The family of this 97-nucleotide RNA from Papaver somniferum is "Small nucleolar RNA Z157/R69/R10". Rfam 15.1 lists 836 matches to the family in 232 species. Its family is annotated with RNA processing and nucleolus in the Gene Ontology. The family's consensus secondary structure was predicted with PFOLD. Its Rfam clan is "SNORD52 clan". The family's RNA type in Rfam is C/D-box small nucleolar RNA.
RNA sequence: UAAAGUUCUGUGAUGACACUAUUGUGGACUAGAGUUUCUGAUUGGGGCACUUCACCCUAAUAUUUGAUUACAAACCCUUGGCUGUCUGAGAACUUUU
Numbered sequence: 001u002a003a004a005g006u007u008c009u010g011u012g013a014u015g016a017c018a019c020u021a022u023u024g025u026g027g028a029c030u031a032g033a034g035u036u037u038c039u040g041a042u043u044g045g046g047g048c049a050c051u052u053c054a055c056c057c058u059a060a061u062a063u064u065u066g067a068u069u070a071c072a073a074a075c076c077c078u079u080g081g082c083u084g085u086c087u088g089a090g091a092a093c094u095u096u097u
Stems, first nucleotide, its partner, number of pairs: 002096007037067002042062001043059005